[Rfam]
RNA sequence: CGACUCGAAUCGCUGAAUUCUCGCGUUGCGGGAAGCGGGGGAACCAAUGAAUGCGGCGCAAGUCGAAGGGGUGAAGUCUUCUAUUUUAGAAGGCGGGGCUAAUCUUGAAGUCCUAAUCCGGCAGCUAACCUCGUAAGCGUAUCAAGAGAGGAGUG
Numbered sequence: 001c002g003a004c005u006c007g008a009a010u011c012g013c014u015g016a017a018u019u020c021u022c023g024c025g026u027u028g029c030g031g032g033a034a035g036c037g038g039g040g041g042a043a044c045c046a047a048u049g050a051a052u053g054c055g056g057c058g059c060a061a062g063u064c065g066a067a068g069g070g071g072u073g074a075a076g077u078c079u080u081c082u083a084u085u086u087u088a089g090a091a092g093g094c095g096g097g098g099c100u101a102a103u104c105u106u107g108a109a110g111u112c113c114u115a116a117u118c119c120g121g122c123a124g125c126u127a128a129c130c131u132c133g134u135a136a137g138c139g140u141a142u143c144a145a146g147a148g149a150g151g152a153g154u155g
Stems, first nucleotide, its partner, number of pairs: 011139004018034007035134006045068001069119003077093004096113004

The family of this 155-nucleotide sequence from Cohnella faecalis is "c-di-AMP riboswitch aptamer (ydaO/yuaA leader)". A search with the family's covariance model found it, with a score of 87 bits.